[Rfam]
Bacterial antisense RNA HPnc0260: a 150-nucleotide sequence from Moellerella wisconsensis. Lineage of the source: Bacteria > Gammaproteobacteria > Morganellaceae > Moellerella > Moellerella wisconsensis.

RNA sequence: AGGAUUUUAGUAAAGCUAAGCAAAAUAAAUAGUGUUAAGUAAAUAAUAUAAUUGAUAAAUAAGUAGAAAUAUACCAAGGGAAGGGGAUAAGAAAAGUAUUGAACAGUAAAAUGGUGCGUCCGAGUAGACUCGAACUACCGACCCCCACCA
Numbered sequence: 001a002g003g004a005u006u007u008u009a010g011u012a013a014a015g016c017u018a019a020g021c022a023a024a025a026u027a028a029a030u031a032g033u034g035u036u037a038a039g040u041a042a043a044u045a046a047u048a049u050a051a052u053u054g055a056u057a058a059a060u061a062a063g064u065a066g067a068a069a070u071a072u073a074c075c076a077a078g079g080g081a082a083g084g085g086g087a088u089a090a091g092a093a094a095a096g097u098a099u100u101g102a103a104c105a106g107u108a109a110a111a112u113g114g115u116g117c118g119u120c121c122g123a124g125u126a127g128a129c130u131c132g133a134a135c136u137a138c139c140g141a142c143c144c145c146c147a148c149c150a
Base pairs, nucleotide, nucleotide: 015040016039017038021034022033052066053065054064112147113146114145116143121140122139124138125137126136127135